[Rfam]
RNA sequence: CCAGCAUUUCUGGGUAGGCCAAGGCAUCCUACGUGCCUUGUGUUAGAUCUACAGGGUGUCUGA
Numbered sequence: 001c002c003a004g005c006a007u008u009u010c011u012g013g014g015u016a017g018g019c020c021a022a023g024g025c026a027u028c029c030u031a032c033g034u035g036c037c038u039u040g041u042g043u044u045a046g047a048u049c050u051a052c053a054g055g056g057u058g059u060c061u062g063a
Stems, first nucleotide, its partner, number of pairs: 002062003006059002009056003014052005020040006027031001
A member of the RNA family "MAT2A 3'UTR stem loop E" from Odobenus rosmarus, 63 nucleotides long. For this family Rfam cites "New families of human regulatory RNA structures identified by comparative analysis of vertebrate genomes" (Parker et al., Genome Res, 2011).